[Rfam]
The family of this 79-nucleotide RNA sequence from Diversispora eburnea is "Small nucleolar RNA SNORD79". NCBI's taxonomy places the organism under Eukaryota, Fungi, Diversisporales, Diversisporaceae, Diversispora. Clan: SNORD74 clan. About the family: snoRNA U79 or Z22 is found in intron 7 of the gas5 gene in humans and is also present in mice.
RNA sequence: AUGUAAUAAUAAUGAUGAACUUUAUAACAAUGGGAAUCUCUCUGAAUCAAAUUGAUGAUAUCUCUCAACUGAAAUAUAU
Numbered sequence: 001a002u003g004u005a006a007u008a009a010u011a012a013u014g015a016u017g018a019a020c021u022u023u024a025u026a027a028c029a030a031u032g033g034g035a036a037u038c039u040c041u042c043u044g045a046a047u048c049a050a051a052u053u054g055a056u057g058a059u060a061u062c063u064c065u066c067a068a069c070u071g072a073a074a075u076a077u078a079u
Stems, first nucleotide, its partner, number of pairs: 001079005007073001